Rfam assigns this 204-nucleotide sequence from Panicum hallii to the family "U11 spliceosomal RNA". The literature on the family includes a 1988 paper in Proc Natl Acad Sci U S A by Montzka and Steitz, "Additional low-abundance human small nuclear ribonucleoproteins: U11, U12, etc". Rfam links the family to the GO terms mRNA 5'-splice site recognition, pre-mRNA 5'-splice site binding and U11 snRNP. The source organism's lineage runs through Eukaryota, Embryophyta, Spermatophyta, Panicodae and Panicum hallii. By type it is a spliceosomal small nuclear RNA.

[Rfam]
RNA sequence: AAAAAAUCUUUGCCGAGUGUCAAAUAUUUUGCCGAGUGUUUUUUUUUGGCACUCGGCAAAGAGCUUCUUUGCCGAGUGCCGGUCUUUGCCGAGAGCCUUUUUUAGACACUCGGUAAAGAAUCUCUUUGCCGAGUGCCUUUUUCAAGACACUCGGCAAAGAUAAUUUUUAAAUCAUAUUUUGAAGUAGUAAAUUAAUUCAAAUAA
Numbered sequence: 001a002a003a004a005a006a007u008c009u010u011u012g013c014c015g016a017g018u019g020u021c022a023a024a025u026a027u028u029u030u031g032c033c034g035a036g037u038g039u040u041u042u043u044u045u046u047u048g049g050c051a052c053u054c055g056g057c058a059a060a061g062a063g064c065u066u067c068u069u070u071g072c073c074g075a076g077u078g079c080c081g082g083u084c085u086u087u088g089c090c091g092a093g094a095g096c097c098u099u100u101u102u103u104a105g106a107c108a109c110u111c112g113g114u115a116a117a118g119a120a121u122c123u124c125u126u127u128g129c130c131g132a133g134u135g136c137c138u139u140u141u142u143c144a145a146g147a148c149a150c151u152c153g154g155c156a157a158a159g160a161u162a163a164u165u166u167u168u169a170a171a172u173c174a175u176a177u178u179u180u181g182a183a184g185u186a187g188u189a190a191a192u193u194a195a196u197u198c199a200a201a202u203a204a
Base pairs, nucleotide, nucleotide: 008159009158010157011156012155013056014055015054016053017052018051019050020049021048022047023046024045057128058127059126060125061124062123063122065120066119067118068117069116070115071114072113073112074111075110076109077108078107129154130153131152132151133150134149135148176202177201178200179199181198182197183196185194187193